[Rfam]
RNA: Purine riboswitch aptamer
Organism: Thermanaeromonas toyohensis
RNA sequence: AGUCCUAUUCAUACCUGUCUUCGUAUAUCCCCAGUAAUAUGGUCUGGGGGUCUCUACCAGGCAACCGUAAAUUGCCCGGCUACGAAGGCGGGCCUUAGCUUU
Numbered sequence: 001a002g003u004c005c006u007a008u009u010c011a012u013a014c015c016u017g018u019c020u021u022c023g024u025a026u027a028u029c030c031c032c033a034g035u036a037a038u039a040u041g042g043u044c045u046g047g048g049g050g051u052c053u054c055u056a057c058c059a060g061g062c063a064a065c066c067g068u069a070a071a072u073u074g075c076c077c078g079g080c081u082a083c084g085a086a087g088g089c090g091g092g093c094c095u096u097a098g099c100u101u102u
Stems, first nucleotide, its partner, number of pairs: 018088008029049006058078001060076005